[Rfam]
RNA: Small nucleolar RNA R66
RNA sequence: UCCCAUGACGGUAUGGAAUCCUUAAGAUCUGAAUUCAUUUAACUUGGAAGAAAAUUACAAGCAUAAUUUCUGAGGAC
Numbered sequence: 001u002c003c004c005a006u007g008a009c010g011g012u013a014u015g016g017a018a019u020c021c022u023u024a025a026g027a028u029c030u031g032a033a034u035u036c037a038u039u040u041a042a043c044u045u046g047g048a049a050g051a052a053a054a055u056u057a058c059a060a061g062c063a064u065a066a067u068u069u070c071u072g073a074g075g076a077c
Stems, first nucleotide, its partner, number of pairs: 001076003032045001034041001